[Rfam]
RNA sequence: CCAUGAACUUUGUACCGCGCACAUCACUUAGAUAGGCUCUCGAAAAUCACGGGAAAA
Numbered sequence: 001c002c003a004u005g006a007a008c009u010u011u012g013u014a015c016c017g018c019g020c021a022c023a024u025c026a027c028u029u030a031g032a033u034a035g036g037c038u039c040u041c042g043a044a045a046a047u048c049a050c051g052g053g054a055a056a057a
Stems, first nucleotide, its partner, number of pairs: 019037002023033003
Source information:
The family of this 57-nucleotide sequence from Papaver nudicaule is "Plastid-ndhJ 3UTR RNA". Plastid ndhJ is a non-coding RNA (ncRNA) present in plastids. By type it is a cis-regulatory element. Rfam 15.1 lists 869 matches to the family in 155 species.